Rfam assigns this 74-nucleotide sequence from Mesorhabditis spiculigera to the family "SmY spliceosomal RNA".
RNA sequence: AUGAAAUAUCUUAAUCUGCCCGGGCCUUUGCUAAGACCCAGGGUGAUCAAUUUUUGGAAGCAUCGCAAGAUGCA
Numbered sequence: 001a002u003g004a005a006a007u008a009u010c011u012u013a014a015u016c017u018g019c020c021c022g023g024g025c026c027u028u029u030g031c032u033a034a035g036a037c038c039c040a041g042g043g044u045g046a047u048c049a050a051u052u053u054u055u056g057g058a059a060g061c062a063u064c065g066c067a068a069g070a071u072g073c074a
Base pairs, nucleotide, nucleotide: 022039023038024037026035027034028033060073061072062071063070064069
For this family Rfam cites "Organization of the Caenorhabditis elegans small non-coding transcriptome: genomic features, biogenesis, and expression" (Deng et al., Genome Res, 2006).